[Rfam]
RNA: RNA of unknown function RUF4
Organism: Ceratopteris richardii
RNA sequence: UUACGUACGUUACGUACGUAACGUACGCAUACGUUACGUACGUUAUACGUACGUACGUAACGUACGUACGUUAUACGUACGUACGUAACGUACGUACGUUAUACGUACGUUAUACGUACGUACGUUACGUACGUUAUACGUACGUACGUAACGUACGUACGUUAUAUGUACGUACGUAACGUACGUACGUUAUACGUACGUACGUAACGUACGUACGUAACGUACGUACGUUAUACGUAC
Numbered sequence: 001u002u003a004c005g006u007a008c009g010u011u012a013c014g015u016a017c018g019u020a021a022c023g024u025a026c027g028c029a030u031a032c033g034u035u036a037c038g039u040a041c042g043u044u045a046u047a048c049g050u051a052c053g054u055a056c057g058u059a060a061c062g063u064a065c066g067u068a069c070g071u072u073a074u075a076c077g078u079a080c081g082u083a084c085g086u087a088a089c090g091u092a093c094g095u096a097c098g099u100u101a102u103a104c105g106u107a108c109g110u111u112a113u114a115c116g117u118a119c120g121u122a123c124g125u126u127a128c129g130u131a132c133g134u135u136a137u138a139c140g141u142a143c144g145u146a147c148g149u150a151a152c153g154u155a156c157g158u159a160c161g162u163u164a165u166a167u168g169u170a171c172g173u174a175c176g177u178a179a180c181g182u183a184c185g186u187a188c189g190u191u192a193u194a195c196g197u198a199c200g201u202a203c204g205u206a207a208c209g210u211a212c213g214u215a216c217g218u219a220a221c222g223u224a225c226g227u228a229c230g231u232u233a234u235a236c237g238u239a240c
Base pairs, nucleotide, nucleotide: 003117004116005115006114007113012110013109014108015107016106017105018104019103020102027099028098030096031095036082037081038080039079040078041077042076043075048070049069050068051067052066053065054064055063056062084094085093086092087091122182123181124180127177128176129175130174131173132172133171134170138162139161140160141159142158143157144156145155146154147153148152184200185199186198187197188196208237209236210235212230213229214228215227216226217225218224219223